The family of this 195-nucleotide RNA from Oryza barthii is "MIR1435 microRNA precursor family". Taxonomically the source falls in Oryza (Eukaryota, Euphyllophyta, Magnoliopsida, Oryzinae). The family has 3 seed sequences and 1,765 matches in Rfam 15.1. Rfam links the family to the GO terms miRNA-mediated post-transcriptional gene silencing and RISC complex.
RNA sequence: UGACUUUGGUUAAAGUCAAACUGCUUCAAGUUUGAUCAGUUUGCAGAAAAAAGAAGUAACAUUAACCAAGACAAAUUUAUUAAGAAAACAUAUUCAAUUAUUGAUUUGAUGAAACUAAUUUGGUUUUGUAAAUAUUACUAUAUUUAUCUAUAAAUUUAAUCAAACUUAAAAUAGUUUGACUUUGACCAAAAUCAA
Numbered sequence: 001u002g003a004c005u006u007u008g009g010u011u012a013a014a015g016u017c018a019a020a021c022u023g024c025u026u027c028a029a030g031u032u033u034g035a036u037c038a039g040u041u042u043g044c045a046g047a048a049a050a051a052a053g054a055a056g057u058a059a060c061a062u063u064a065a066c067c068a069a070g071a072c073a074a075a076u077u078u079a080u081u082a083a084g085a086a087a088a089c090a091u092a093u094u095c096a097a098u099u100a101u102u103g104a105u106u107u108g109a110u111g112a113a114a115c116u117a118a119u120u121u122g123g124u125u126u127u128g129u130a131a132a133u134a135u136u137a138c139u140a141u142a143u144u145u146a147u148c149u150a151u152a153a154a155u156u157u158a159a160u161c162a163a164a165c166u167u168a169a170a171a172u173a174g175u176u177u178g179a180c181u182u183u184g185a186c187c188a189a190a191a192u193c194a195a
Base pairs, nucleotide, nucleotide: 005190006189007188008187009186011184012183013182014181015180016179017178018177019176020175021174022173023172025170026169031164032163033162034161035160045149046148047147049145050144051143055139056138058136059135061133062132063131065129066128072122073121074120075119076118